Guanidine-II riboswitch aptamer (mini-ykkC): a 47-nucleotide RNA sequence from Microbulbifer thermotolerans. Lineage of the source: Bacteria > Pseudomonadota > Gammaproteobacteria > Cellvibrionales > Microbulbifer. Gene Ontology term of the family: regulation of gene expression. A search with the family's covariance model found it, with a score of 43 bits.
RNA sequence: AAGUGAGGACGACCUCACCUCUCAAAUUUCAUCAGGGGACGGCCCCG
Dot-bracket structure: (.((((((....)))))).)..............((((....)))).